[Rfam]
RNA sequence: UCCCCCACGCCUCUCCACGAUGCGCAACCCGGGGGAU
Numbered sequence: 001u002c003c004c005c006c007a008c009g010c011c012u013c014u015c016c017a018c019g020a021u022g023c024g025c026a027a028c029c030c031g032g033g034g035g036a037u
Stems, first nucleotide, its partner, number of pairs: 001036006008024003
A member of the RNA family "abiF RNA" from Paramagnetospirillum magnetotacticum, 37 nucleotides long. From the family's description: Actinobacteria, Bacteroidetes, Clostridia, Proteobacteria, one Clostridia phage. Rfam's curators put it in the seed alignment. The organism belongs to Paramagnetospirillum magnetotacticum, within Bacteria.